[Rfam]
RNA sequence: AACGCUGCGUUUCUUUGCUCACAAACAGACUGAAUGCUGAGCUUUGCUCUCUCCACGUCAUCCUUGCAAAUGAGAAAUUCGGAGUAAUCUUCACCCCACCGCUAUCCUCUGUCGCGUGCUUCGCGCAGCUUCAGCAGCUCUGGCAACUGCCCGUGAGGGCCUGGCAUGACUCUCAUGUCUGCACCUGGCAUCAGAAAUCUCAGGACUGCUUCUUCCUUCAUCUGCUCCGGUGGACUGAUACGAGGAUUCAGUUCCUAUGGGAGCCUGUGCGAAGAUGGUGUACGUCUUCGGACGUGAUACUUGAGUGCAAUACGCGGCGUGCUGAGCUCUUGGCGACUCUUCGGAGGAGCUGAGAGGGAGGUACAAUUCGAUUCCGAUUACUCUGUU
Numbered sequence: 001a002a003c004g005c006u007g008c009g010u011u012u013c014u015u016u017g018c019u020c021a022c023a024a025a026c027a028g029a030c031u032g033a034a035u036g037c038u039g040a041g042c043u044u045u046g047c048u049c050u051c052u053c054c055a056c057g058u059c060a061u062c063c064u065u066g067c068a069a070a071u072g073a074g075a076a077a078u079u080c081g082g083a084g085u086a087a088u089c090u091u092c093a094c095c096c097c098a099c100c101g102c103u104a105u106c107c108u109c110u111g112u113c114g115c116g117u118g119c120u121u122c123g124c125g126c127a128g129c130u131u132c133a134g135c136a137g138c139u140c141u142g143g144c145a146a147c148u149g150c151c152c153g154u155g156a157g158g159g160c161c162u163g164g165c166a167u168g169a170c171u172c173u174c175a176u177g178u179c180u181g182c183a184c185c186u187g188g189c190a191u192c193a194g195a196a197a198u199c200u201c202a203g204g205a206c207u208g209c210u211u212c213u214u215c216c217u218u219c220a221u222c223u224g225c226u227c228c229g230g231u232g233g234a235c236u237g238a239u240a241c242g243a244g245g246a247u248u249c250a251g252u253u254c255c256u257a258u259g260g261g262a263g264c265c266u267g268u269g270c271g272a273a274g275a276u277g278g279u280g281u282a283c284g285u286c287u288u289c290g291g292a293c294g295u296g297a298u299a300c301u302u303g304a305g306u307g308c309a310a311u312a313c314g315c316g317g318c319g320u321g322c323u324g325a326g327c328u329c330u331u332g333g334c335g336a337c338u339c340u341u342c343g344g345a346g347g348a349g350c351u352g353a354g355a356g357g358g359a360g361g362u363a364c365a366a367u368u369c370g371a372u373u374c375c376g377a378u379u380a381c382u383c384u385g386u387u
Stems, first nucleotide, its partner, number of pairs: 005316001014070004028059003031055002033052001080376005089274004149160004163179005181270004187265003202256003319364005